[Rfam]
RNA: Bacterial small signal recognition particle RNA
RNA sequence: GACGGGCCUCCUCGCAUGGUGGGGCGGUCAACCUGGUCAGGUCGGGAACGAAGCAGCCACAGCCGUUUUCCGCCAGUGCCGAGGGUCGGGCUCGUC
Numbered sequence: 001g002a003c004g005g006g007c008c009u010c011c012u013c014g015c016a017u018g019g020u021g022g023g024g025c026g027g028u029c030a031a032c033c034u035g036g037u038c039a040g041g042u043c044g045g046g047a048a049c050g051a052a053g054c055a056g057c058c059a060c061a062g063c064c065g066u067u068u069u070c071c072g073c074c075a076g077u078g079c080c081g082a083g084g085g086u087c088g089g090g091c092u093c094g095u096c
Stems, first nucleotide, its partner, number of pairs: 004093005009085006015076001017075006023067006034059004042051003